[Rfam]
RNA sequence: CCCAGGGCUUACGCCCUGGGCUGGUGGAUGUCGCCUCUUCGAGGCU
Numbered sequence: 001c002c003c004a005g006g007g008c009u010u011a012c013g014c015c016c017u018g019g020g021c022u023g024g025u026g027g028a029u030g031u032c033g034c035c036u037c038u039u040c041g042a043g044g045c046u
Base pairs, nucleotide, nucleotide: 001020002019003018004017005016006015007014008013033045034044035043036042037041
Rfam assigns this 46-nucleotide sequence from Fimbriimonas ginsengisoli to the family "Acido-Lenti-1 RNA". Lineage of the source: Bacteria > Armatimonadota > Fimbriimonadales > Fimbriimonadaceae > Fimbriimonas ginsengisoli. Pairs were carried over by alignment from the consensus structure, which is taken from published work. The family has 87 seed sequences and 2,607 matches in Rfam 15.1.